RNA sequence: UCUCUUCCCAUCAAGGACGGCUGUGCCUAUAUUGGGAGUGUACGGGUAACCGGACUAUGGGGAUAAACGCCCACGUAAUAAGCGAACUGGACCCGGGUGCGAUUCCCGGCGGCUCCACCAUUUUCCUUCCGGAAGUCUAUGGCCGGACGUUUAUGGGGCCGAUCAGCAUCGACAGGCGUGUAAAGGUGAAGCCUUCCCUCGGUAUGAGCCUCCGCGAUCGGCUCAUUUUCUAACUGCGAACGAUAACUUCGCUCAGGAGCAUGCCCUUGCUGCGUAAUGCAGCGGGGAUCCUCCACCUAAACUCCUAGGGAAUAAGCCCCCUAGGCGGGGCCCGGCAGGCGCCUUGCAACAGAAGCCUGCCACU
Numbered sequence: 001u002c003u004c005u006u007c008c009c010a011u012c013a014a015g016g017a018c019g020g021c022u023g024u025g026c027c028u029a030u031a032u033u034g035g036g037a038g039u040g041u042a043c044g045g046g047u048a049a050c051c052g053g054a055c056u057a058u059g060g061g062g063a064u065a066a067a068c069g070c071c072c073a074c075g076u077a078a079u080a081a082g083c084g085a086a087c088u089g090g091a092c093c094c095g096g097g098u099g100c101g102a103u104u105c106c107c108g109g110c111g112g113c114u115c116c117a118c119c120a121u122u123u124u125c126c127u128u129c130c131g132g133a134a135g136u137c138u139a140u141g142g143c144c145g146g147a148c149g150u151u152u153a154u155g156g157g158g159c160c161g162a163u164c165a166g167c168a169u170c171g172a173c174a175g176g177c178g179u180g181u182a183a184a185g186g187u188g189a190a191g192c193c194u195u196c197c198c199u200c201g202g203u204a205u206g207a208g209c210c211u212c213c214g215c216g217a218u219c220g221g222c223u224c225a226u227u228u229u230c231u232a233a234c235u236g237c238g239a240a241c242g243a244u245a246a247c248u249u250c251g252c253u254c255a256g257g258a259g260c261a262u263g264c265c266c267u268u269g270c271u272g273c274g275u276a277a278u279g280c281a282g283c284g285g286g287g288a289u290c291c292u293c294c295a296c297c298u299a300a301a302c303u304c305c306u307a308g309g310g311a312a313u314a315a316g317c318c319c320c321c322u323a324g325g326c327g328g329g330g331c332c333c334g335g336c337a338g339g340c341g342c343c344u345u346g347c348a349a350c351a352g353a354a355g356c357c358u359g360c361c362a363c364u
Stems, first nucleotide, its partner, number of pairs: 040055002043052002059199005069192002072188003083178002087175003093109005110161007200214003205225006328344004335360006
RNA: Alphaproteobacteria transfer-messenger RNA
Organism: Asticcacaulis sp. AC402